[Rfam]
RNA sequence: UAACUCUGGUCUCCCUUCAAUACGCAUAAAUCUUUCGCCUUUUACUAAAGAUUUCCGUGGAGGGUGACACUCAAAUGAGUCUACUCAUAUUUUUGAAUGCUCUGCUUGCAGAGUU
Numbered sequence: 001u002a003a004c005u006c007u008g009g010u011c012u013c014c015c016u017u018c019a020a021u022a023c024g025c026a027u028a029a030a031u032c033u034u035u036c037g038c039c040u041u042u043u044a045c046u047a048a049a050g051a052u053u054u055c056c057g058u059g060g061a062g063g064g065u066g067a068c069a070c071u072c073a074a075a076u077g078a079g080u081c082u083a084c085u086c087a088u089a090u091u092u093u094u095g096a097a098u099g100c101u102c103u104g105c106u107u108g109c110a111g112a113g114u115u
Base pairs, nucleotide, nucleotide: 003080004079005078006077009068010067011066013064014063015062016061017060018059019058028054029053030052031051032050033049034048035047097115099114100113101112102111103110104109